[Rfam]
Rfam assigns this 91-nucleotide RNA sequence from Medicago truncatula to the family "MIR5298 microRNA precursor family". It scores 72 bits against the family's covariance model. The organism belongs to Medicago, within Eukaryota.
RNA sequence: UUAGGUUCUCAUCAUUUUCUUAUGGAAUUUUUCUGGGAUUCUUGUUGUUGAAGGUUGACAGAGAUGAUAUGAAGAUGAAAAAGAGGAAAAG
Numbered sequence: 001u002u003a004g005g006u007u008c009u010c011a012u013c014a015u016u017u018u019c020u021u022a023u024g025g026a027a028u029u030u031u032u033c034u035g036g037g038a039u040u041c042u043u044g045u046u047g048u049u050g051a052a053g054g055u056u057g058a059c060a061g062a063g064a065u066g067a068u069a070u071g072a073a074g075a076u077g078a079a080a081a082a083g084a085g086g087a088a089a090a091g
Base pairs, nucleotide, nucleotide: 006084007083009081012078013077014076015075016074017073018072019071037056038055039054040053042051043050